[Rfam]
RNA sequence: UUGCGCAAGCGUUGAUUAUCUCGGCAAUCUUCGCAAGCACCUGCCGGCGUUGGUGGCCUAAGAUUUUCAACAGAAUCACUGCCCGGACAUUCGUCCACGGCGAACGGCCCUAGCGGGCCAUUCGCGGCCGCCAGCCCCACCGGGCCGGGGCUGGCCACCGGGCUGCGCACCGUCCCAGCAGAGGGUGCGAGGUGAGCCUGCGCCACAAGCGUUGAGCCGGACGCCGUAUCGAUCAAGGAGGGCCCAAGGGCCUUCCU
Numbered sequence: 001u002u003g004c005g006c007a008a009g010c011g012u013u014g015a016u017u018a019u020c021u022c023g024g025c026a027a028u029c030u031u032c033g034c035a036a037g038c039a040c041c042u043g044c045c046g047g048c049g050u051u052g053g054u055g056g057c058c059u060a061a062g063a064u065u066u067u068c069a070a071c072a073g074a075a076u077c078a079c080u081g082c083c084c085g086g087a088c089a090u091u092c093g094u095c096c097a098c099g100g101c102g103a104a105c106g107g108c109c110c111u112a113g114c115g116g117g118c119c120a121u122u123c124g125c126g127g128c129c130g131c132c133a134g135c136c137c138c139a140c141c142g143g144g145c146c147g148g149g150g151c152u153g154g155c156c157a158c159c160g161g162g163c164u165g166c167g168c169a170c171c172g173u174c175c176c177a178g179c180a181g182a183g184g185g186u187g188c189g190a191g192g193u194g195a196g197c198c199u200g201c202g203c204c205a206c207a208a209g210c211g212u213u214g215a216g217c218c219g220g221a222c223g224c225c226g227u228a229u230c231g232a233u234c235a236a237g238g239a240g241g242g243c244c245c246a247a248g249g250g251c252c253u254u255c256c257u
Stems, first nucleotide, its partner, number of pairs: 002011003043057004076195005081163004085096004100125005107118003126156005134145004166189003170185002173182002196217002198214001200212004236257004241252004
Dot-bracket structure: .(((....)))...............................((((.......))))..................(((((((((((((....))))...(((((..(((......)))..)))))(((((...((((....))))......)))))...))))..(((.((.((......)).)).))).)))))(((.((((.....)))).).))..................((((.((((....)))).))))

Rfam assigns this 257-nucleotide RNA from Pseudomonas sp. URIL14HWK12:I9 to the family "Pseudomonas sRNA P24". This small RNA (sRNA) was computationally identified in the genome of the opportunistic pathogen Pseudomonas aeruginosa and its expression verified by Northern blot analysis. P24 is conserved across several Pseudomonas species and in Azotobacter vinelandii. Pairs were carried over by alignment from the consensus structure, which was predicted with RNAalifold. The literature on the family includes a 2006 paper in Nucleic Acids Res by Livny et al., "Identification of 17 Pseudomonas aeruginosa sRNAs and prediction of sRNA-encoding genes in 10 diverse pathogens using the bioinformatic tool sRNAPredict2".